[Rfam]
RNA sequence: GCUCUGCCAACGCUACGGCUUGGCAGGCAGACCUCUUUAACGUGGUCAGCCAGUUUUGUCCUGCUUCGGCAAAUACGUUUAGCGGUUCGGUAGAGCGCCUAGUAAGUUAUUGAAAAGCGCAGCCGAC
Numbered sequence: 001g002c003u004c005u006g007c008c009a010a011c012g013c014u015a016c017g018g019c020u021u022g023g024c025a026g027g028c029a030g031a032c033c034u035c036u037u038u039a040a041c042g043u044g045g046u047c048a049g050c051c052a053g054u055u056u057u058g059u060c061c062u063g064c065u066u067c068g069g070c071a072a073a074u075a076c077g078u079u080u081a082g083c084g085g086u087u088c089g090g091u092a093g094a095g096c097g098c099c100u101a102g103u104a105a106g107u108u109a110u111u112g113a114a115a116a117g118c119g120c121a122g123c124c125g126a127c
Base pairs, nucleotide, nucleotide: 001028002027004026005025006024007023008022009021010020012019013018062071063070064069085127087126088125089124090123091122096119097118098117105111
RNA: Bacteriophage Diversity-Generating Retroelement RNA